This 90-nucleotide sequence from Emericellopsis cladophorae belongs to the Rfam family "tRNA".
RNA sequence: GGGGUGAUGGCGUAGUUGGGAGCGCGUUCGACUGAAGUACACCUCAGUCUCAUCAUCGAAAGGUCACCGGUUCGAUCCCGGUUCGCCCCA
Numbered sequence: 001g002g003g004g005u006g007a008u009g010g011c012g013u014a015g016u017u018g019g020g021a022g023c024g025c026g027u028u029c030g031a032c033u034g035a036a037g038u039a040c041a042c043c044u045c046a047g048u049c050u051c052a053u054c055a056u057c058g059a060a061a062g063g064u065c066a067c068c069g070g071u072u073c074g075a076u077c078c079c080g081g082u083u084c085g086c087c088c089c090a
Stems, first nucleotide, its partner, number of pairs: 001089007010025004027060005066082005
Source information:
The family's consensus secondary structure is taken from published work. It is annotated as a transfer RNA. The match comes from Rfam's covariance-model search (55 bits).